RNA: Na+ riboswitch aptamer (DUF1646)
RNA sequence: GGUUGAACAAAUAAUUUUAUUUGAUUUCAAGAGUAGCAUGGCUUUUGGGGUGGAAAGUC
Number, nucleotide and partner (000 for none) at each position: 001g000002g000003u030004u029005g028006a025007a000008c023009a022010a021011a020012u000013a000014a000015u000016u000017u000018u000019a000020u011021u010022u009023g008024a000025u006026u000027u000028c005029a004030a003031g000032a000033g000034u000035a000036g000037c000038a000039u000040g059041g058042c057043u056044u055045u054046u053047g000048g000049g000050g000051u000052g000053g046054a045055a044056a043057g042058u041059c040